RNA sequence: GAGCCAUGGCGACUAAUGCACAAAUGUGAAGAUGGGUCUUUAUACAUGUCUGAUUUAAGUGAUGAAACGUUGUGUAUCCGAGCUC
Numbered sequence: 001g002a003g004c005c006a007u008g009g010c011g012a013c014u015a016a017u018g019c020a021c022a023a024a025u026g027u028g029a030a031g032a033u034g035g036g037u038c039u040u041u042a043u044a045c046a047u048g049u050c051u052g053a054u055u056u057a058a059g060u061g062a063u064g065a066a067a068c069g070u071u072g073u074g075u076a077u078c079c080g081a082g083c084u085c
Base pairs, nucleotide, nucleotide: 001085002084003083004082
Record summary
The family of this 85-nucleotide RNA sequence from Solanum commersonii is "small nucleolar RNA snoR114". Pairs were carried over by alignment from the consensus structure, which was predicted with RNAalifold. By type it is a C/D-box small nucleolar RNA. The literature on the family includes a 2009 paper in Nucleic Acids Res by Chen and Wu, "Mining small RNA sequencing data: a new approach to identify small nucleolar RNAs in Arabidopsis". Gene Ontology terms of the family: RNA processing and nucleolus.